[Rfam]
RNA sequence: GAAAAAUUUUGCUAUUAUUCUUGUGGUGGGAUCGCGUAUGGGCAUGACGGUGUAACCGUCAGGCAUUAGCCUCCCAUGCGCGACAAACAGGCUCCUCUCAGGGGCCUUUUUUUAUGCCCAAAA
Dot-bracket structure: ......(.(................).)((.(((((((((((..((((((.....)))))).((....))..))))))))))....(.(((((((.....)))))))).......).))....
Shown here is a 123-nucleotide RNA sequence from Rhizobium oryziradicis, a member of the family "Rhizobiales sRNA Atu_C8". It scores 116 bits against the family's covariance model. NCBI's taxonomy places the organism under Bacteria, Pseudomonadati, Hyphomicrobiales, Rhizobiaceae, Rhizobium. The family's RNA type in Rfam is small RNA. The literature on the family includes a 2012 paper in RNA Biol by Wilms et al., "Deep sequencing uncovers numerous small RNAs on all four replicons of the plant pathogen Agrobacterium tumefaciens".